[Rfam]
MIR862_2 microRNA precursor family: a 90-nucleotide RNA from Glycine max.
NCBI's taxonomy places the organism under Eukaryota, Euphyllophyta, Papilionoideae, Phaseoleae, Glycine subgen. Soja.
Nucleotides: 090
Base pairs, nucleotide, nucleotide: 006085007084008083010081011080012079013078014077016075017074018073019072020071021070022069023068025066026065027064028063029062030061031060032059033058034057
Number, partner (000 for none) and nucleotide at each position: 001000a002000g003000u004000c005000u006085u007084c008083g009000u010081g011080u012079u013078c014077c015000c016075u017074c018073a019072a020071a021070g022069g023068c024000u025066u026065c027064c028063a029062g030061u031060a032059u033058u034057c035000a036000u037000u038000c039000a040000u041000a042000c043000c044000u045000a046000a047000c048000u049000a050000g051000u052000u053000g054000c055000u056000u057034g058033a059032a060031u061030g062029c063028u064027g065026g066025a067000u068023g069022u070021c071020u072019u073018u074017g075016a076000a077014g078013g079012a080011a081010u082000u083008u084007g085006a086000a087000a088000g089000c090000u

Record summary: Pairs were carried over by alignment from the consensus structure, which was predicted with RNAalifold.